[Rfam]
RNA sequence: CCACGCUUAGCGGGAGAGACCUCCCCAGCGAGGCGCCGUAGGAGCAAACCCUCCCCGGGAAACUCUCAGGCAACCGCACCGCUAGGUACAG
Number, nucleotide and partner (000 for none) at each position: 001c000002c000003a000004c000005g000006c086007u085008u084009a083010g082011c081012g080013g079014g000015a000016g000017a000018g000019a000020c033021c032022u031023c030024c000025c000026c000027a000028g000029c000030g023031a022032g021033g020034c000035g071036c070037c069038g067039u000040a000041g000042g065043a064044g063045c000046a000047a000048a000049c057050c000051c000052u000053c000054c000055c000056c000057g049058g000059g000060a000061a000062a000063c044064u043065c042066u000067c038068a000069g037070g036071c035072a000073a000074c000075c000076g000077c000078a000079c013080c012081g011082c010083u009084a008085g007086g006087u000088a000089c000090a000091g000
RNA: Glycine riboswitch aptamer
Organism: Pseudoglutamicibacter albus